[Rfam]
RNA: Retron msr RNA
Organism: Vibrio parahaemolyticus
RNA sequence: GCUCUUUAGCUUAGGACGAAUUUCGUCUAGUCGGGUGAUUAGCCAGACUCUAACUUAUUGAACGGG
Numbered sequence: 001g002c003u004c005u006u007u008a009g010c011u012u013a014g015g016a017c018g019a020a021u022u023u024c025g026u027c028u029a030g031u032c033g034g035g036u037g038a039u040u041a042g043c044c045a046g047a048c049u050c051u052a053a054c055u056u057a058u059u060g061a062a063c064g065g066g
Base pairs, nucleotide, nucleotide: 003065004064005062006061007060008059009058029049030048031047032046034044035043036042